[Rfam]
RNA: mir-31 microRNA precursor family
Organism: Rhipicephalus sanguineus
RNA sequence: UAAUCUGUGAUUGGCAAGAUGGUGGCAUAGUUGUGUAGUACCGAGAACCCAGCUGUGCUUCAUCGAGCCAAUCGCCGGUUCA
Dot-bracket structure: ....(.(((((((((..((((..((((((((....................)))))))).))))..))))))))).).....